[Rfam]
RNA sequence: GAGCCGUGAGGAAGAAUUACCUGUGCCAGAGGCAUAUCUCUUGCCGAUGAUGGCUACACAACCCUCUAAGAAGUUCUGAGCUC
Dot-bracket structure: ((((...........................................................................))))

The record is an 83-nucleotide RNA sequence from Cannabis sativa, which matches "Small nucleolar RNA U61" in Rfam. Its family is annotated with nucleolus and RNA processing in the Gene Ontology. On this family, see Brown et al., Nucleic Acids Res 2003: "Plant snoRNA database". Pairs were carried over by alignment from the consensus structure, which was predicted with WAR. The organism belongs to Cannabis, within Eukaryota. By type it is a C/D-box small nucleolar RNA.